[Rfam]
RNA sequence: UGGAUAGAUUAUUAUAUUCGAAUGUAUUUUCACGGCGUGAAACGGGAAAUUACACUAUUUUUAAACGGAUCGUGAAUCAAUUAACAUAAUAGACUCCU
Numbered sequence: 001u002g003g004a005u006a007g008a009u010u011a012u013u014a015u016a017u018u019c020g021a022a023u024g025u026a027u028u029u030u031c032a033c034g035g036c037g038u039g040a041a042a043c044g045g046g047a048a049a050u051u052a053c054a055c056u057a058u059u060u061u062u063a064a065a066c067g068g069a070u071c072g073u074g075a076a077u078c079a080a081u082u083a084a085c086a087u088a089a090u091a092g093a094c095u096c097c098u
Stems, first nucleotide, its partner, number of pairs: 002097003009092007017084002020082002023079002026077002030075004036067003039061004044056002
Record summary
A member of the RNA family "MIR6152 microRNA precursor family" from Nicotiana sylvestris, 98 nucleotides long. The source organism's lineage runs through Eukaryota, Spermatophyta, Pentapetalae, Nicotianeae and Nicotiana. It scores 86 bits against the family's covariance model.